[Rfam]
RNA sequence: GCUGGCAGUGAUGACAAACUUGCCCUCACUGAGAUCCAUCCAGGGAUGGCUGUUGAGAAACAUCCUUUGUGCUCAACUUGGCUGAGCCUGC
Numbered sequence: 001g002c003u004g005g006c007a008g009u010g011a012u013g014a015c016a017a018a019c020u021u022g023c024c025c026u027c028a029c030u031g032a033g034a035u036c037c038a039u040c041c042a043g044g045g046a047u048g049g050c051u052g053u054u055g056a057g058a059a060a061c062a063u064c065c066u067u068u069g070u071g072c073u074c075a076a077c078u079u080g081g082c083u084g085a086g087c088c089u090g091c
Stems, first nucleotide, its partner, number of pairs: 001091002004088003
Small nucleolar RNA SNORD103/SNORD85: a 91-nucleotide RNA from Pycnonotus jocosus. The family's RNA type in Rfam is C/D-box small nucleolar RNA. For this family Rfam cites "RNomics: an experimental approach that identifies 201 candidates for novel, small, non-messenger RNAs in mouse" (Huttenhofer et al., EMBO J, 2001). NCBI's taxonomy places the organism under Eukaryota, Sauria, Saurischia, Passeriformes, Pycnonotus.